[Rfam]
RNA sequence: CUUCUCACUACAUUCUCGCGACUAAUGACAAUCCUUAUAUACCUGACAAAGUGGCAAUAAAGUCUCUCAUUAGCCGCGCGAAAACAUCUGUAACGGAAGUUCAUGUUCUUAAAAGCACUACAGAAACAACAGCCAUACAGUAACCUGAUUUGCUGUCGCUUCCUAGAAUAAAGGGGCCUAUUGGCCCCUUUAC
Numbered sequence: 001c002u003u004c005u006c007a008c009u010a011c012a013u014u015c016u017c018g019c020g021a022c023u024a025a026u027g028a029c030a031a032u033c034c035u036u037a038u039a040u041a042c043c044u045g046a047c048a049a050a051g052u053g054g055c056a057a058u059a060a061a062g063u064c065u066c067u068c069a070u071u072a073g074c075c076g077c078g079c080g081a082a083a084a085c086a087u088c089u090g091u092a093a094c095g096g097a098a099g100u101u102c103a104u105g106u107u108c109u110u111a112a113a114a115g116c117a118c119u120a121c122a123g124a125a126a127c128a129a130c131a132g133c134c135a136u137a138c139a140g141u142a143a144c145c146u147g148a149u150u151u152g153c154u155g156u157c158g159c160u161u162c163c164u165a166g167a168a169u170a171a172a173g174g175g176g177c178c179u180a181u182u183g184g185c186c187c188c189u190u191u192a193c
Stems, first nucleotide, its partner, number of pairs: 001099004006095001010091003017080004022073007106147001173188006
RNA: SraG RNA
Organism: Ewingella americana